[Rfam]
Shown here is a 93-nucleotide sequence from bacterium HR26, a member of the family "Selenocysteine transfer RNA". Pairs were carried over by alignment from the consensus structure, which is taken from published work. The match comes from Rfam's covariance-model search (75 bits). Gene Ontology term of the family: triplet codon-amino acid adaptor activity.
RNA sequence: GAGGGCGGAUCGGGCCCGGUGGCCUGCGCGGUCUUCAAAACCGUUGGGCGGGGUGACGAGCCUCGCCGGUGGGUUCGACUCCCAUGCGCCCUC
Numbered sequence: 001g002a003g004g005g006c007g008g009a010u011c012g013g014g015c016c017c018g019g020u021g022g023c024c025u026g027c028g029c030g031g032u033c034u035u036c037a038a039a040a041c042c043g044u045u046g047g048g049c050g051g052g053g054u055g056a057c058g059a060g061c062c063u064c065g066c067c068g069g070u071g072g073g074u075u076c077g078a079c080u081c082c083c084a085u086g087c088g089c090c091c092u093c
Stems, first nucleotide, its partner, number of pairs: 001093007009085001011026006028044005047067005070084004